[Rfam]
RNA sequence: AAAGUUUAAGGCCACAGCAGAAGUGCUCAUAGUGCGACCUGUCAGAUUCCAAAGAAAUCUGUGAAUUGUGCU
Dot-bracket structure: .........[[.[..((((.(((((.......)))].]]...((((((.......))))))....)).))))
Numbered sequence: 001a002a003a004g005u006u007u008a009a010g011g012c013c014a015c016a017g018c019a020g021a022a023g024u025g026c027u028c029a030u031a032g033u034g035c036g037a038c039c040u041g042u043c044a045g046a047u048u049c050c051a052a053a054g055a056a057a058u059c060u061g062u063g064a065a066u067u068g069u070g071c072u
Stems, first nucleotide, its partner, number of pairs: 010039002013036001016072004021067002023035003043061006